[Rfam]
RNA: Streptomyces sRNA 4677
RNA sequence: AACUCCGGUGCCGCGAGCGCCCCCGUGGCACCCGCUCACUCGCCCGGGUGAACAUCACCGGCCGGGCUGGCGUUCACGUCCCCCAACUGCCCUACGCUCAGCGGCAACAGAACGGCCCCCGCAGGGACGGCAAUCCCGGAGCGAGGGCCUCACCACCCAGGAAGAAGAGACCUUCCCG
Numbered sequence: 001a002a003c004u005c006c007g008g009u010g011c012c013g014c015g016a017g018c019g020c021c022c023c024c025g026u027g028g029c030a031c032c033c034g035c036u037c038a039c040u041c042g043c044c045c046g047g048g049u050g051a052a053c054a055u056c057a058c059c060g061g062c063c064g065g066g067c068u069g070g071c072g073u074u075c076a077c078g079u080c081c082c083c084c085a086a087c088u089g090c091c092c093u094a095c096g097c098u099c100a101g102c103g104g105c106a107a108c109a110g111a112a113c114g115g116c117c118c119c120c121g122c123a124g125g126g127a128c129g130g131c132a133a134u135c136c137c138g139g140a141g142c143g144a145g146g147g148c149c150u151c152a153c154c155a156c157c158c159a160g161g162a163a164g165a166a167g168a169g170a171c172c173u174u175c176c177c178g
Stems, first nucleotide, its partner, number of pairs: 007157004017022001036051006066102005114149005120143003124137004160176005
Dot-bracket structure: ......((((......(....).............((((((....))))))..............(((((...........................)))))...........(((((.(((.((((......))))...))).)))))....))))..(((((.......)))))..